[Rfam]
RNA: mir-160 microRNA precursor family
Organism: Ricinus communis
RNA sequence: UUAUGCCUGGCUCCCUGUAUGCCACAAGCUAGAGUUCAUUCCCUUCCAUGGAUUGGCUAUUGCCGGUGGCGUGCGAGGAGCCAAGCAUAC
Numbered sequence: 001u002u003a004u005g006c007c008u009g010g011c012u013c014c015c016u017g018u019a020u021g022c023c024a025c026a027a028g029c030u031a032g033a034g035u036u037c038a039u040u041c042c043c044u045u046c047c048a049u050g051g052a053u054u055g056g057c058u059a060u061u062g063c064c065g066g067u068g069g070c071g072u073g074c075g076a077g078g079a080g081c082c083a084a085g086c087a088u089a090c
Stems, first nucleotide, its partner, number of pairs: 002089005008083007016075009028063002